[Rfam]
RNA sequence: UGGGAGGUCGUCUAAUGGCAGGACAGCGGACUCUGGAUCCGCCGGUGGAGGUUCGAGUCCUCCCCUCCCAG
Numbered sequence: 001u002g003g004g005a006g007g008u009c010g011u012c013u014a015a016u017g018g019c020a021g022g023a024c025a026g027c028g029g030a031c032u033c034u035g036g037a038u039c040c041g042c043c044g045g046u047g048g049a050g051g052u053u054c055g056a057g058u059c060c061u062c063c064c065c066u067c068c069c070a071g
Base pairs, nucleotide, nucleotide: 001070002069003068004067005066006065007064010024011023012022013021026042027041028040029039030038047063048062049061050060051059
Shown here is a 71-nucleotide RNA from Marinitoga piezophila, a member of the family "tRNA". About the family: Transfer RNA (tRNA) molecules are approximately 80 nucleotides in length. It is annotated as a transfer RNA.